[Rfam]
RNA sequence: CCGAGUCACCCGCAGUCAUCGAGCCGCGGGCGAGCCGGGGACCCACCGCAGCACUGGGGUGAAUCGCGCGCCGCGCACGUCGCGGCGCGGGUAGGGCCACUUCCCGCCCGAACCCGUCAGCUAACUCGGUAGGCGGCCAUCGGAAGGAACG
Numbered sequence: 001c002c003g004a005g006u007c008a009c010c011c012g013c014a015g016u017c018a019u020c021g022a023g024c025c026g027c028g029g030g031c032g033a034g035c036c037g038g039g040g041a042c043c044c045a046c047c048g049c050a051g052c053a054c055u056g057g058g059g060u061g062a063a064u065c066g067c068g069c070g071c072c073g074c075g076c077a078c079g080u081c082g083c084g085g086c087g088c089g090g091g092u093a094g095g096g097c098c099a100c101u102u103c104c105c106g107c108c109c110g111a112a113c114c115c116g117u118c119a120g121c122u123a124a125c126u127c128g129g130u131a132g133g134c135g136g137c138c139a140u141c142g143g144a145a146g147g148a149a150c151g
Base pairs, nucleotide, nucleotide: 001133002132006033007032034130035129036128037127038126039125044056045055057115058114059113065091067089068088069087070086071085072084073083074082075081094109095108096107097106
Rfam assigns this 151-nucleotide RNA sequence from Blastococcus saxobsidens to the family "c-di-AMP riboswitch aptamer (ydaO/yuaA leader)". It scores 54 bits against the family's covariance model. Rfam describes the family as follows. This family represents a conserved RNA structure found upstream of the ydaO and yuaA genes in Bacillus subtilis and related genes in other bacteria. The ydaO/yuaA element is thought to act as a genetic 'off' switch for the ydaO and yuaA genes in its native state. It is believed that the element may be triggered during osmotic shock leading to activation of ydaO, a predicted amino acid transporter gene, and members of the yuaA-yubG operon which code for KtrA and KtrB K+ transporters.